The family of this 117-nucleotide sequence from Moschus moschiferus is "Small nucleolar RNA SNORA26". On this family, see Huttenhofer et al., EMBO J 2001: "RNomics: an experimental approach that identifies 201 candidates for novel, small, non-messenger RNAs in mouse". The base pairs follow the family's consensus structure, which was predicted with RNAalifold. Rfam describes the family as follows. The snoRNA HBI-6 belong to the H/ACA family of snoRNAs, guiding the pseudouridylation of position U4522 if the 28S rRNA. HBI-6 is the human orthologue of mouse MBI-6 snoRNA. It is annotated as an H/ACA-box small nucleolar RNA. NCBI's taxonomy places the organism under Eukaryota, Teleostomi, Sarcopterygii, Eutheria, Moschus.
[Rfam]
RNA sequence: UUACCUCUUUCUCGAGACUUAAAAGGAUUAAGGCUAACACAGAAAGGUAGAGUAAGUCUCUAAAAUCCAGAGAAAAGAUUGUAAAUCUCCUCUUGGAUUCUGUCUGAAGUCACAGCU
Numbered sequence: 001u002u003a004c005c006u007c008u009u010u011c012u013c014g015a016g017a018c019u020u021a022a023a024a025g026g027a028u029u030a031a032g033g034c035u036a037a038c039a040c041a042g043a044a045a046g047g048u049a050g051a052g053u054a055a056g057u058c059u060c061u062a063a064a065a066u067c068c069a070g071a072g073a074a075a076a077g078a079u080u081g082u083a084a085a086u087c088u089c090c091u092c093u094u095g096g097a098u099u100c101u102g103u104c105u106g107a108a109g110u111c112a113c114a115g116c117u
Base pairs, nucleotide, nucleotide: 002049003048004047005046006045008043009042010041014038017035019033056111058109059108061106062105067096068095069094071093072092073091076088077087080085
Dot-bracket structure: .(((((.(((...(..(.(.............).)..)..))).)))))......(.((.((....(((.(((..((..(....).))..))))))........)).)).)......